[Rfam]
RNA sequence: CUCUAGGGAUAAAGUUCUGUUGUCCCCCUCGAUCAAGAGAUCGAGUAAACAAAUCGGGUGAAUUGCAUUAACAAGUUUUUAAUAAAACUCAAUCUGCAGCGAAGCUUAUUUCGGCAUAAUUAAAUGAAAUAAGAACGUUCAACGACUAGAGAGUGAGUUAUGUCAACAAUAACCUCUCCAAGAGCGCCCGACAACAUCAUAUAAAUUAAAUUUUAAUUAAGAGGGUAUUUUAAAAAUAUUUCUAGGAAAAUUUAAUUUCUUAGACACCCCCCCUUAAUUUAUAUAUUUAUUGGUGUUGAUGAUAUAGUCUGAACAGAUGGGAGACUAUCUG
Number, nucleotide and partner (000 for none) at each position: 001c000002u000003c000004u000005a029006g028007g027008g026009a000010u000011a023012a000013a021014g000015u000016u000017c000018u000019g000020u000021u013022g000023u011024c000025c000026c008027c007028c006029u005030c000031g000032a000033u044034c043035a000036a000037g000038a000039g000040a000041u000042c000043g034044a033045g000046u000047a000048a000049a000050c000051a000052a000053a000054u191055c190056g189057g188058g000059u186060g185061a000062a000063u000064u098065g097066c096067a095068u000069u000070a000071a000072c000073a000074a089075g088076u087077u086078u085079u000080u000081a000082a000083u000084a000085a078086a077087a076088c075089u074090c000091a000092a000093u000094c000095u067096g066097c065098a064099g138100c137101g000102a000103a000104g000105c000106u131107u000108a000109u000110u000111u000112c126113g125114g000115c000116a000117u000118a000119a000120u000121u000122a000123a000124a000125u113126g112127a000128a000129a000130u000131a106132a000133g000134a000135a000136c000137g100138u099139u000140c000141a000142a310143c000144g309145a308146c307147u306148a305149g000150a000151g000152a000153g000154u000155g000156a000157g000158u000159u000160a000161u000162g000163u000164c000165a000166a000167c000168a000169a000170u000171a000172a000173c000174c000175u000176c000177u000178c000179c000180a000181a000182g000183a000184g000185c060186g059187c000188c057189c056190g055191a054192c000193a000194a296195c295196a294197u293198c292199a291200u000201a000202u000203a000204a000205a000206u000207u000208a000209a000210a000211u000212u000213u000214u000215a000216a000217u000218u000219a000220a000221g000222a000223g000224g000225g000226u000227a000228u000229u000230u000231u000232a000233a000234a000235a000236a000237u000238a000239u000240u000241u000242c000243u000244a000245g000246g000247a000248a000249a000250a000251u000252u000253u000254a000255a000256u000257u000258u000259c000260u000261u000262a000263g000264a000265c000266a000267c000268c000269c000270c000271c000272c000273c000274u000275u000276a000277a000278u000279u000280u000281a000282u000283a000284u000285a000286u000287u000288u000289a000290u000291u199292g198293g197294u196295g195296u194297u000298g000299a000300u000301g000302a000303u000304a000305u148306a147307g146308u145309c144310u142311g000312a000313a000314c000315a000316g329317a328318u327319g326320g325321g000322a000323g000324a000325c320326u319327a318328u317329c316330u000331g000